[Rfam]
mir-5928 microRNA precursor family: a 75-nucleotide sequence from Haemonchus placei. The match comes from Rfam's covariance-model search (73 bits).

RNA sequence: GGCACAACCUUGAAAUAGAGUAGAUUAGUGAGAUCAGCUGAUCCUACUAAGCUACUCUACUUAAAGUUUGUGCCG
Numbered sequence: 001g002g003c004a005c006a007a008c009c010u011u012g013a014a015a016u017a018g019a020g021u022a023g024a025u026u027a028g029u030g031a032g033a034u035c036a037g038c039u040g041a042u043c044c045u046a047c048u049a050a051g052c053u054a055c056u057c058u059a060c061u062u063a064a065a066g067u068u069u070g071u072g073c074c075g
Base pairs, nucleotide, nucleotide: 001074002073003072004071005070006069007068009066011064013062014061016059017058018057019056020055021054022053023052025050026049027048028047029046030045032043033042034041035040